[Rfam]
Nucleotides: 075
Stems, first nucleotide, its partner, number of pairs: 001074007010027004029045005051067005
Number, partner (000 for none) and nucleotide at each position: 001074g002073g003072g004071c005070c006069c007068g008000u009000g010027g011026c012025u013024c014000a015000g016000c017000c018000u019000g020000g021000u022000u023000a024013g025012a026011g027010c028000g029045u030044g031043c032042g033041c034000c035000u036000g037000a038000u039000a040000a041033g042032c043031g044030c045029a046000a047000g048000g049000u050000c051067c052066g053065g054064g055063g056000u057000u058000c059000a060000a061000a062000u063055c064054c065053c066052c067051g068007c069006g070005g071004g072003c073002c074001c075000a